[Rfam]
RNA sequence: AACCAUAGCUAGGGGUGUCUAAAAAAUUAGGCUGAGAAAAACCCUUAGAACCUGAGACUGGGUAAUACCAGCGUAGGAAAGCUGUUUAUAGAGGAU
Numbered sequence: 001a002a003c004c005a006u007a008g009c010u011a012g013g014g015g016u017g018u019c020u021a022a023a024a025a026a027u028u029a030g031g032c033u034g035a036g037a038a039a040a041a042c043c044c045u046u047a048g049a050a051c052c053u054g055a056g057a058c059u060g061g062g063u064a065a066u067a068c069c070a071g072c073g074u075a076g077g078a079a080a081g082c083u084g085u086u087u088a089u090a091g092a093g094g095a096u
Stems, first nucleotide, its partner, number of pairs: 006084005011045004016039001017032005051077004058071004
This 96-nucleotide RNA from Cyanobacterium stanieri belongs to the Rfam family "TPP riboswitch aptamer (THI element)". Vitamin B(1) in its active form thiamin pyrophosphate (TPP) is an essential coenzyme that is synthesised by coupling of pyrimidine and thiazole moieties in bacteria. Gene Ontology term of the family: thiamine pyrophosphate binding.